[Rfam]
RNA sequence: AUUCAUGUGAGGCAUUUACAGGCGUGGCUGCAGUGUCACGUUUGUGUCAUUCGGUGGCAAAGAGGACAAGGCGAGGUCUUCCCCUGGUGCUCUGACCUACGUGGGCUCCCAGGGUUUCUCAACAGCCUGACAUU
Numbered sequence: 001a002u003u004c005a006u007g008u009g010a011g012g013c014a015u016u017u018a019c020a021g022g023c024g025u026g027g028c029u030g031c032a033g034u035g036u037c038a039c040g041u042u043u044g045u046g047u048c049a050u051u052c053g054g055u056g057g058c059a060a061a062g063a064g065g066a067c068a069a070g071g072c073g074a075g076g077u078c079u080u081c082c083c084c085u086g087g088u089g090c091u092c093u094g095a096c097c098u099a100c101g102u103g104g105g106c107u108c109c110c111a112g113g114g115u116u117u118c119u120c121a122a123c124a125g126c127c128u129g130a131c132a133u134u
Stems, first nucleotide, its partner, number of pairs: 003057002006053002009050001011048003018045004023040006069128004082114001084112004089106004
Small nucleolar RNA SNORA17: a 134-nucleotide sequence from Formicarius rufipectus. Clan: SNORA17 clan. Gene Ontology terms of the family: RNA processing and nucleolus. A search with the family's covariance model found it, with a score of 53 bits. The literature on the family includes a 1997 paper in J Mol Biol by Ofengand and Bakin, "Mapping to nucleotide resolution of pseudouridine residues in large subunit ribosomal RNAs from representative eukaryotes, prokaryotes, archaebacteria, mitochondria and chloroplasts". The family has 53 seed sequences and 5,784 matches in Rfam 15.1. Rfam classes the family as an H/ACA-box small nucleolar RNA. Rfam's curators write: snoRNA ACA 17 belongs to the H/ACA family of snoRNAs and is predicted to guide pseudouridylation of the 28S rRNA at positions U4659 and U4598. It shares the same host gene together with ACA43.